RNA sequence: ACCUGCAGUGCUGAAUGGAAGACUAGUGAUUUUGUUGUGAUACUGAACAAAGAGACCAACAACAAAACCCAGUCUACCUCUCAGCACCGGGA
Numbered sequence: 001a002c003c004u005g006c007a008g009u010g011c012u013g014a015a016u017g018g019a020a021g022a023c024u025a026g027u028g029a030u031u032u033u034g035u036u037g038u039g040a041u042a043c044u045g046a047a048c049a050a051a052g053a054g055a056c057c058a059a060c061a062a063c064a065a066a067a068c069c070c071a072g073u074c075u076a077c078c079u080c081u082c083a084g085c086a087c088c089g090g091g092a
Stems, first nucleotide, its partner, number of pairs: 002091004008087002011084004017078002020075005026070001028068001030066003034063005
Dot-bracket structure: .((((..((.((((..((.(((((.(.(.(((.(((((....................)))))))).).)))))).))..)))).)))))).

Overview
The family of this 92-nucleotide RNA from Bagarius yarrelli is "mir-7 microRNA precursor family". This family represents the microRNA (miRNA) precursor mir-7. The base pairs follow the family's consensus structure, which was predicted with PFOLD. Rfam links the family to the GO terms RISC complex and miRNA-mediated post-transcriptional gene silencing. The family has 132 seed sequences and 2,589 matches in Rfam 15.1.